Shown here is a 98-nucleotide RNA sequence from Psychrobacillus glaciei, a member of the family "Guanidine-I riboswitch aptamer".
RNA sequence: UAAAUUGUUUUCUAGGGUUCCGCAACGAGUGAGUUGGUCUGAGACCGAGAGAAAACUCACAGCUUGCUGUGUCACGGAAGGAUAAAAGCCUGGGAGAA
Numbered sequence: 001u002a003a004a005u006u007g008u009u010u011u012c013u014a015g016g017g018u019u020c021c022g023c024a025a026c027g028a029g030u031g032a033g034u035u036g037g038u039c040u041g042a043g044a045c046c047g048a049g050a051g052a053a054a055a056c057u058c059a060c061a062g063c064u065u066g067c068u069g070u071g072u073c074a075c076g077g078a079a080g081g082a083u084a085a086a087a088g089c090c091u092g093g094g095a096g097a098a
Stems, first nucleotide, its partner, number of pairs: 007056006015046002020043001021041001022039001023036004058071005073093001075096001079091003

Pairs were carried over by alignment from the consensus structure.